[Rfam]
RNA sequence: GGGCAUUCGGAAGGCUUGCACUCUGGGCUACAAGCAGGGAACCUGGUUUCUCCCCCAACCCCGCCCAGGGGAAAGUCCCCGGACUCGUGGCAGAAAGUGCCCUGGGUGAUUCCAGCGUCGACCAGCGCCAUACCGUCAAUGUAGCGAAGACGUUCACCUGAACCGAGCUUGGUACUCGCUGGUCGGCUUUGUCAGCGUUCAUAGUAAUGCAAGUGAGCAGUUACUGACGCUAAAACAGAACGGGGCUCAUUCUCGGAAUGCA
Numbered sequence: 001g002g003g004c005a006u007u008c009g010g011a012a013g014g015c016u017u018g019c020a021c022u023c024u025g026g027g028c029u030a031c032a033a034g035c036a037g038g039g040a041a042c043c044u045g046g047u048u049u050c051u052c053c054c055c056c057a058a059c060c061c062c063g064c065c066c067a068g069g070g071g072a073a074a075g076u077c078c079c080c081g082g083a084c085u086c087g088u089g090g091c092a093g094a095a096a097g098u099g100c101c102c103u104g105g106g107u108g109a110u111u112c113c114a115g116c117g118u119c120g121a122c123c124a125g126c127g128c129c130a131u132a133c134c135g136u137c138a139a140u141g142u143a144g145c146g147a148a149g150a151c152g153u154u155c156a157c158c159u160g161a162a163c164c165g166a167g168c169u170u171g172g173u174a175c176u177c178g179c180u181g182g183u184c185g186g187c188u189u190u191g192u193c194a195g196c197g198u199u200c201a202u203a204g205u206a207a208u209g210c211a212a213g214u215g216a217g218c219a220g221u222u223a224c225u226g227a228c229g230c231u232a233a234a235a236c237a238g239a240a241c242g243g244g245g246c247u248c249a250u251u252c253u254c255g256g257a258a259u260g261c262a
Stems, first nucleotide, its partner, number of pairs: 003261006010254002014214006022069007037052005074247002077245004089101004103114004116186001122182006131174003143169003152163004217228001